[Rfam]
RNA: mir-288 microRNA precursor family
Organism: Drosophila busckii
RNA sequence: CGCAGCGUAAUUAGCAACGCAGAGGCAACGUUUGCUGGCGAUAAUUAAUGACGUUGGUCACGUUGGUUUCAUGUCGAUUUCAUUUCAUGACACUGCCG
Numbered sequence: 001c002g003c004a005g006c007g008u009a010a011u012u013a014g015c016a017a018c019g020c021a022g023a024g025g026c027a028a029c030g031u032u033u034g035c036u037g038g039c040g041a042u043a044a045u046u047a048a049u050g051a052c053g054u055u056g057g058u059c060a061c062g063u064u065g066g067u068u069u070c071a072u073g074u075c076g077a078u079u080u081c082a083u084u085u086c087a088u089g090a091c092a093c094u095g096c097c098g
Stems, first nucleotide, its partner, number of pairs: 002096003007091002010088002016084002019081001021079002028074004034067007049060004